[Rfam]
RNA sequence: GGCGAGAUGGCCGAGCGGUCUAAGGCGCCAGCUUAAGGUUCUUCCAAUGCGCUGGUCCGAAAGGGCGUGGGUUCAAAUCCCACUCUCGUCA
Dot-bracket structure: (((((((..(((...........))).(((((..................)))))...........(((((.......)))))))))))).
Rfam assigns this 91-nucleotide RNA sequence from Aureobasidium vineae to the family "tRNA". Pairs were carried over by alignment from the consensus structure, which is taken from published work. Gene Ontology term of the family: triplet codon-amino acid adaptor activity. Rfam classes the family as a transfer RNA.